RNA sequence: CGGUCGGGAGCCACGCAUUGGGACGUGUGGCAAGAAUAGGCCGGUUCCAUCGCUGUCUCAGGGAUAGCCACCGUGGCCCGACGGUGACUGU
Dot-bracket structure: (((((....(((((((........))))))).......)))))....................((((.(((((........))))).))))